Record summary
The family of this 175-nucleotide sequence from Geotalea uraniireducens is "Group II catalytic intron D1-D4-3". Rfam describes the family as follows. Group II introns are found in rRNA, tRNA and mRNA of organelles in fungi, plants and protists, and also in mRNA in bacteria. The sequence is in the family's curated seed alignment. For this family Rfam cites "Group II introns: structure and catalytic versatility of large natural ribozymes" (Lehmann and Schmidt, Crit Rev Biochem Mol Biol, 2003). Rfam 15.1 lists 4,274 matches to the family in 1,585 species.
[Rfam]
RNA sequence: UCCGGGGCGACCCGGAAUCUGAAGGAAGCUGUAGGCAAAGUCCUGGCCCGACGAACAGGAAUCGCAUAUGAGGCAGCCACAUCUGGGCGAGAAGGCAAACAGAUUCAAAGCCCGAUAACCAUCCAGAAAGAUGUGGAAGUAGAUGCGGCGGGUAUAUGGGAUGAAGGUCACGCGC
Number, nucleotide and partner (000 for none) at each position: 001u016002c015003c014004g013005g012006g011007g000008c000009g000010a000011c006012c005013c004014g003015g002016a001017a000018u000019c000020u000021g000022a000023a000024g000025g000026a000027a000028g175029c174030u000031g000032u000033a000034g000035g168036c167037a000038a000039a000040g162041u161042c160043c159044u158045g157046g153047c152048c151049c150050g149051a000052c000053g000054a000055a000056c000057a000058g000059g000060a000061a000062u148063c147064g146065c145066a144067u143068a000069u000070g000071a000072g000073g140074c139075a000076g000077c136078c000079a134080c133081a132082u131083c130084u129085g113086g112087g111088c110089g000090a000091g106092a105093a104094g000095g000096c000097a000098a000099a000100c000101a000102g000103a000104u093105u092106c091107a000108a000109a000110g088111c087112c086113c085114g000115a000116u000117a000118a000119c000120c000121a000122u000123c000124c000125a000126g000127a000128a000129a084130g083131a082132u081133g080134u079135g000136g077137a000138a000139g074140u073141a000142g000143a067144u066145g065146c064147g063148g062149c050150g049151g048152g047153u046154a000155u000156a000157u045158g044159g043160g042161a041162u040163g000164a000165a000166g000167g036168u035169c000170a000171c000172g000173c000174g029175c028